[Rfam]
RNA sequence: AUACAUUUGUAUCUAGCACAGGAAGUGUGCAAAGUUACGCCUUUAUAAGAUAUGAUGUGUGAGACCUGUAGGGAAUGCGUUGGAGCUCAAACUCUGUAAAAUCCC
Numbered sequence: 001a002u003a004c005a006u007u008u009g010u011a012u013c014u015a016g017c018a019c020a021g022g023a024a025g026u027g028u029g030c031a032a033a034g035u036u037a038c039g040c041c042u043u044u045a046u047a048a049g050a051u052a053u054g055a056u057g058u059g060u061g062a063g064a065c066c067u068g069u070a071g072g073g074a075a076u077g078c079g080u081u082g083g084a085g086c087u088c089a090a091a092c093u094c095u096g097u098a099a100a101a102u103c104c105c
Stems, first nucleotide, its partner, number of pairs: 016030005034065003038061003044057003048053001082095004

This 105-nucleotide RNA sequence from Helicobacter pylori belongs to the Rfam family "Heliobacter pylori small RNA HPnc0580". On this family, see Sharma et al., Nature 2010: "The primary transcriptome of the major human pathogen Helicobacter pylori". The sequence is in the family's curated seed alignment. The source organism's lineage runs through Bacteria, Campylobacterota, Epsilonproteobacteria, Helicobacter and Helicobacter pylori. Pairs were carried over by alignment from the consensus structure, which was predicted with RNAalifold.